The family of this 135-nucleotide sequence from Paenibacillaceae bacterium GAS479 is "Ribosomal protein L10 leader". Pairs were carried over by alignment from the consensus structure, which was predicted with CMfinder. It is annotated as a cis-regulatory leader. The match comes from Rfam's covariance-model search (75 bits). Rfam links the family to the GO term regulation of gene expression. About the family: This family is a putative r-protein leader autoregulatory structure found in B. subtilis and other low-GC Gram-positive bacteria. Taxonomically the source falls in Paenibacillaceae (Bacteria, Bacillota, Bacilli, Caryophanales).
RNA sequence: AACUUUAGAACACGCAUGCCUAAGACAGUAGGUGCCCUUGCGGCUUAAUUUUCCUACCGAGGUGUUAUGAUAAACGUUUCUCGUAAACGGAUCAUGGCCUUCGCUGUCUUGGCGGAGGCCUUUAUACAUGCACCU
Numbered sequence: 001a002a003c004u005u006u007a008g009a010a011c012a013c014g015c016a017u018g019c020c021u022a023a024g025a026c027a028g029u030a031g032g033u034g035c036c037c038u039u040g041c042g043g044c045u046u047a048a049u050u051u052u053c054c055u056a057c058c059g060a061g062g063u064g065u066u067a068u069g070a071u072a073a074a075c076g077u078u079u080c081u082c083g084u085a086a087a088c089g090g091a092u093c094a095u096g097g098c099c100u101u102c103g104c105u106g107u108c109u110u111g112g113c114g115g116a117g118g119c120c121u122u123u124a125u126a127c128a129u130g131c132a133c134c135u
Stems, first nucleotide, its partner, number of pairs: 028057005034044003096120010
Dot-bracket structure: ...........................(((((.(((.....)))........)))))......................................((((((((((.....))))))))))...............